Small nucleolar RNA SNORD24: a 90-nucleotide sequence from Eremothecium cymbalariae.
The organism belongs to Eremothecium cymbalariae, within Eukaryota.
The family has 14 seed sequences and 2,843 matches in Rfam 15.1.
By type it is a C/D-box small nucleolar RNA.
The base pairs follow the family's consensus structure, which was predicted with PFOLD.
It scores 49 bits against the family's covariance model.
The literature on the family includes a 2001 paper in Proc Natl Acad Sci U S A by Hirose and Steitz, "Position within the host intron is critical for efficient processing of box C/D snoRNAs in mammalian cells".
RNA sequence: AUCAAAUGAUGAUUCUAUUAUAUUUGCUACUUCGGACGUUGUUUUUGCAGCGAAUGAGAUAUACUAUUUAUCACCAAGAUCUCUGAUGAU
Number, nucleotide and partner (000 for none) at each position: 001a090002u089003c088004a087005a000006a000007u000008g000009a000010u000011g000012a000013u000014u000015c000016u000017a000018u000019u000020a000021u000022a000023u000024u000025u000026g000027c000028u000029a000030c000031u000032u000033c000034g000035g000036a000037c000038g000039u000040u000041g000042u000043u000044u000045u000046u000047g000048c000049a000050g000051c000052g000053a000054a000055u000056g000057a000058g000059a000060u000061a000062u000063a000064c000065u000066a000067u000068u000069u000070a000071u000072c000073a000074c000075c000076a000077a000078g000079a000080u000081c000082u000083c000084u000085g000086a000087u004088g003089a002090u001